[Rfam]
RNA sequence: UUUCACAUUUGAAUUCUUUACAAUUUAAAUAAAUUGCCGUGGGAGACAGUAAUGUUUCUCUUAUUAUAUAACUAUAUGCGGGAAACUCCUAAAGUCUUUUUAUAGAUUAUUGUGAAAACUUUUAUAUAUAACUGUGUACACAAAACUUAAAAAUUAAAAAGAAUUGAAUUCUAAAGUUGUGGAAACGAUAGAAUGAAAAUGGACAAUCCGCAGGAAACUAAAAAAAAUAAUCUUUUAUUAUUUAAGGGUUCCUCAGAGACUACACGUUAUACCCCCCCCGAGGGUGAAGAGAUAGUCCAGUUAGAACUGAAAAGUUCUA
Numbered sequence: 001u002u003u004c005a006c007a008u009u010u011g012a013a014u015u016c017u018u019u020a021c022a023a024u025u026u027a028a029a030u031a032a033a034u035u036g037c038c039g040u041g042g043g044a045g046a047c048a049g050u051a052a053u054g055u056u057u058c059u060c061u062u063a064u065u066a067u068a069u070a071a072c073u074a075u076a077u078g079c080g081g082g083a084a085a086c087u088c089c090u091a092a093a094g095u096c097u098u099u100u101u102a103u104a105g106a107u108u109a110u111u112g113u114g115a116a117a118a119c120u121u122u123u124a125u126a127u128a129u130a131a132c133u134g135u136g137u138a139c140a141c142a143a144a145a146c147u148u149a150a151a152a153a154u155u156a157a158a159a160a161g162a163a164u165u166g167a168a169u170u171c172u173a174a175a176g177u178u179g180u181g182g183a184a185a186c187g188a189u190a191g192a193a194u195g196a197a198a199a200u201g202g203a204c205a206a207u208c209c210g211c212a213g214g215a216a217a218c219u220a221a222a223a224a225a226a227a228u229a230a231u232c233u234u235u236u237a238u239u240a241u242u243u244a245a246g247g248g249u250u251c252c253u254c255a256g257a258g259a260c261u262a263c264a265c266g267u268u269a270u271a272c273c274c275c276c277c278c279c280g281a282g283g284g285u286g287a288a289g290a291g292a293u294a295g296u297c298c299a300g301u302u303a304g305a306a307c308u309g310a311a312a313a314g315u316u317c318u319a
Stems, first nucleotide, its partner, number of pairs: 005026001007024003012019002067271004072266001077212006087203003213252002218247002226242005256298001258297005274284003304317005

The record is a 319-nucleotide RNA from Atta colombica, which matches "Group I catalytic intron" in Rfam. Group I catalytic introns are large self-splicing ribozymes. They catalyse their own excision from mRNA, tRNA and rRNA precursors in a wide range of organisms. The core secondary structure consists of 9 paired regions (P1-P9). These fold to essentially two domains - the P4-P6 domain (formed from the stacking of P5, P4, P6 and P6a helices) and the P3-P9 domain (formed from the P8, P3, P7 and P9 helices). The organism belongs to Atta, within Eukaryota. The match comes from Rfam's covariance-model search (56 bits). The family has 12 seed sequences and 5,602 matches in Rfam 15.1.